The record is a 119-nucleotide sequence from Aquilegia coerulea, which matches "Small nucleolar RNA snoR104" in Rfam. For this family Rfam cites "Experimental RNomics: identification of 140 candidates for small non-messenger RNAs in the plant Arabidopsis thaliana" (Marker et al., Curr Biol, 2002).

RNA sequence: GGGGAACAUCUAAGAGGGAGAUGUUACCUGAUACACACUUCCUACAUAAAACUCUGAAUUGUUCGCUAAUAGUUCUGCGAAUUAGUUCUACAAGGCCCAUAUCUCACUUGAAUAGCUAA
Numbered sequence: 001g002g003g004g005a006a007c008a009u010c011u012a013a014g015a016g017g018g019a020g021a022u023g024u025u026a027c028c029u030g031a032u033a034c035a036c037a038c039u040u041c042c043u044a045c046a047u048a049a050a051a052c053u054c055u056g057a058a059u060u061g062u063u064c065g066c067u068a069a070u071a072g073u074u075c076u077g078c079g080a081a082u083u084a085g086u087u088c089u090a091c092a093a094g095g096c097c098c099a100u101a102u103c104u105c106a107c108u109u110g111a112a113u114a115g116c117u118a119a
Stems, first nucleotide, its partner, number of pairs: 001029003005025007053111002066094002070090003075085002
The family's RNA type in Rfam is H/ACA-box small nucleolar RNA.